[Rfam]
RNA sequence: ACCGGGCUUGGUAGCGCUUGCCUAUAACUCAAGUGGGGGUCUUAAAGUGGAUUGAACCUUGAGUUGGGCUCGGUAGGUUGGGCUUGAUGUUGCAAUAUAUGGCUUGCCCAUUCCAAGUUGAGAGUUGGUUCAUGUGGCUUGGGCGAAGGCUUGGGGCACUUGGACUUUAGAGAAGGAGGCAAUGCGUUAGGCUGGCUUUACAGAGCUGCGACAACUCCUCGCUCCUGACAGUGGAAGGAUCACAAGCUUGGGCUCGCCAGGUCCAGUAUGCCUACUGGUCCCACUCAAAGGAACACCCACUUUU
Numbered sequence: 001a002c003c004g005g006g007c008u009u010g011g012u013a014g015c016g017c018u019u020g021c022c023u024a025u026a027a028c029u030c031a032a033g034u035g036g037g038g039g040u041c042u043u044a045a046a047g048u049g050g051a052u053u054g055a056a057c058c059u060u061g062a063g064u065u066g067g068g069c070u071c072g073g074u075a076g077g078u079u080g081g082g083c084u085u086g087a088u089g090u091u092g093c094a095a096u097a098u099a100u101g102g103c104u105u106g107c108c109c110a111u112u113c114c115a116a117g118u119u120g121a122g123a124g125u126u127g128g129u130u131c132a133u134g135u136g137g138c139u140u141g142g143g144c145g146a147a148g149g150c151u152u153g154g155g156g157c158a159c160u161u162g163g164a165c166u167u168u169a170g171a172g173a174a175g176g177a178g179g180c181a182a183u184g185c186g187u188u189a190g191g192c193u194g195g196c197u198u199u200a201c202a203g204a205g206c207u208g209c210g211a212c213a214a215c216u217c218c219u220c221g222c223u224c225c226u227g228a229c230a231g232u233g234g235a236a237g238g239a240u241c242a243c244a245a246g247c248u249u250g251g252g253c254u255c256g257c258c259a260g261g262u263c264c265a266g267u268a269u270g271c272c273u274a275c276u277g278g279u280c281c282c283a284c285u286c287a288a289a290g291g292a293a294c295a296c297c298c299a300c301u302u303u304u
Base pairs, nucleotide, nucleotide: 001040002039003038004023005022006021007020010017028037029036030035044303045302046301047300048299049298050297052295054294057291058290059288060287061286063284064283066281067280068279070278071277072276073275074274075273076272077271078270080264081263082262083261084260085259086258089255093252101248102247103246104245105244106243108238109237111236112235113234114233115232117229118228119227120226122224123223124222125221127166128165129164130163131162132161134159135158136157138155139154140153141152142151143150144149167172174219175218176217177216178215185210186209187208192203193202194201